[Rfam]
RNA sequence: UAACGUCUUCAGGGCGGGGUGAAAUUCCCCACCGGCGGUAGGUCCUCACAAGGGACAAGCCCGCGAGCGCCAUUGCCACCUGGGUGAUGGGUCAGCAGAUCUGGUCCGAUGCCAGAGCCGACGGUUGAGGUGGAUGCCUUUGGGCAAUCACCCGAAAGUCCGGAUGAAAGAAGACGGCC
Numbered sequence: 001u002a003a004c005g006u007c008u009u010c011a012g013g014g015c016g017g018g019g020u021g022a023a024a025u026u027c028c029c030c031a032c033c034g035g036c037g038g039u040a041g042g043u044c045c046u047c048a049c050a051a052g053g054g055a056c057a058a059g060c061c062c063g064c065g066a067g068c069g070c071c072a073u074u075g076c077c078a079c080c081u082g083g084g085u086g087a088u089g090g091g092u093c094a095g096c097a098g099a100u101c102u103g104g105u106c107c108g109a110u111g112c113c114a115g116a117g118c119c120g121a122c123g124g125u126u127g128a129g130g131u132g133g134a135u136g137c138c139u140u141u142g143g144g145c146a147a148u149c150a151c152c153c154g155a156a157a158g159u160c161c162g163g164a165u166g167a168a169a170g171a172a173g174a175c176g177g178c179c
Base pairs, nucleotide, nucleotide: 004176005175006174007173008172009171010170017029018028019027033120034119035064036063037062038061059118060117067096068095100116101115102114103113104112122162123161124160

This 179-nucleotide RNA sequence from Luteibacter sp. Sphag1AF belongs to the Rfam family "FMN riboswitch aptamer (RFN element)". NCBI's taxonomy places the organism under Bacteria, Pseudomonadota, Gammaproteobacteria, Lysobacterales, Luteibacter.